[Rfam]
Background:
Small nucleolar RNA SNORA41: a 136-nucleotide RNA from Vireo altiloquus. Its family is annotated with nucleolus and RNA processing in the Gene Ontology. A reference for the family is Huttenhofer et al. (2001), "RNomics: an experimental approach that identifies 201 candidates for novel, small, non-messenger RNAs in mouse", EMBO J. It scores 94 bits against the family's covariance model. From the family's description: ACA41 is a member of the H/ACA class of snoRNA that guide the sites of modification of uridines to pseudouridines. Pairs were carried over by alignment from the consensus structure, which was predicted with PFOLD.

RNA sequence: CUCCACAGCUACUGGCCUGGAACUGUUCAGAACUGUAGCAGUUGCAGUAUUCCCUCUGUGGAAAAUAAACUUGUUACACAGCAUUAAGCUUCUUCUCAGAUCUUCUGAGAGGGACUUUUCUAUGUAACAAACACUG
Numbered sequence: 001c002u003c004c005a006c007a008g009c010u011a012c013u014g015g016c017c018u019g020g021a022a023c024u025g026u027u028c029a030g031a032a033c034u035g036u037a038g039c040a041g042u043u044g045c046a047g048u049a050u051u052c053c054c055u056c057u058g059u060g061g062a063a064a065a066u067a068a069a070c071u072u073g074u075u076a077c078a079c080a081g082c083a084u085u086a087a088g089c090u091u092c093u094u095c096u097c098a099g100a101u102c103u104u105c106u107g108a109g110a111g112g113g114a115c116u117u118u119u120c121u122a123u124g125u126a127a128c129a130a131a132c133a134c135u136g
Stems, first nucleotide, its partner, number of pairs: 003061004017047003021043005076125003080121001091114001092112006